[Rfam]
RNA sequence: UGACUGUGUAAUCUCUGCAGGCAACUGUGAUGCUGAGUUAUAUUCUCACAAUCACCUGGAGAGAUUCUGCAGUUU
Numbered sequence: 001u002g003a004c005u006g007u008g009u010a011a012u013c014u015c016u017g018c019a020g021g022c023a024a025c026u027g028u029g030a031u032g033c034u035g036a037g038u039u040a041u042a043u044u045c046u047c048a049c050a051a052u053c054a055c056c057u058g059g060a061g062a063g064a065u066u067c068u069g070c071a072g073u074u075u
Stems, first nucleotide, its partner, number of pairs: 003073005010066007020057002024052001026050005
RNA: mir-216 microRNA precursor family
Organism: Cynoglossus semilaevis